[Rfam]
RNA: L31-Actinobacteria ribosomal protein leader
RNA sequence: CCGGGCCCGGUUCCCGCUGGCCGACCAGGUGCAGCUUGCUGCCCGCGACCCGGCCCC
Numbered sequence: 001c002c003g004g005g006c007c008c009g010g011u012u013c014c015c016g017c018u019g020g021c022c023g024a025c026c027a028g029g030u031g032c033a034g035c036u037u038g039c040u041g042c043c044c045g046c047g048a049c050c051c052g053g054c055c056c057c
Base pairs, nucleotide, nucleotide: 003057004056005055007053008052009051010050015047016046017045019043020042021041023039
Dot-bracket structure: ..(((.((((....(((.(((.(...............).))).)))..)))).)))